[Rfam]
RNA sequence: GUGGGCGUAGCUCAGUUGGUAGAGCGCAGGAUUGUGGCUCCUGUGGUCGUGGGUUCAAGUCCCAUCGCUCACC
Numbered sequence: 001g002u003g004g005g006c007g008u009a010g011c012u013c014a015g016u017u018g019g020u021a022g023a024g025c026g027c028a029g030g031a032u033u034g035u036g037g038c039u040c041c042u043g044u045g046g047u048c049g050u051g052g053g054u055u056c057a058a059g060u061c062c063c064a065u066c067g068c069u070c071a072c073c
Stems, first nucleotide, its partner, number of pairs: 001072007010025004027043005049065005
RNA: tRNA
Organism: Candidatus Nitrosoglobus terrae